The family of this 106-nucleotide sequence from Amphibacillus xylanus is "PyrR binding site". The base pairs follow the family's consensus structure, which is taken from published work. NCBI's taxonomy places the organism under Bacteria, Bacillati, Bacillota, Caryophanales, Amphibacillus xylanus. A search with the family's covariance model found it, with a score of 66 bits. By type it is a cis-regulatory element. This family represents the PyrR binding site and terminator structure. This RNA structure is found upstream of a variety of genes involved in pyrimidine biosynthesis and transport.
RNA sequence: AUAACCUUUAAGACAGUCCCGUGAGGCUGAGAAGGAACAAGAUACGUUAUAUUUGGAUACGUGUAUUCAAAUCCCUUUUCUCGCGCGGAGAAAAGGGUUUUUUUAU
Numbered sequence: 001a002u003a004a005c006c007u008u009u010a011a012g013a014c015a016g017u018c019c020c021g022u023g024a025g026g027c028u029g030a031g032a033a034g035g036a037a038c039a040a041g042a043u044a045c046g047u048u049a050u051a052u053u054u055g056g057a058u059a060c061g062u063g064u065a066u067u068c069a070a071a072u073c074c075c076u077u078u079u080c081u082c083g084c085g086c087g088g089a090g091a092a093a094a095g096g097g098u099u100u101u102u103u104u105a106u
Base pairs, nucleotide, nucleotide: 005035006034007033008032009031014029015028016027017026018025040064043063044062045061046060047059050057069101070100071099073097074096075095076094077093078092079091080090081089082088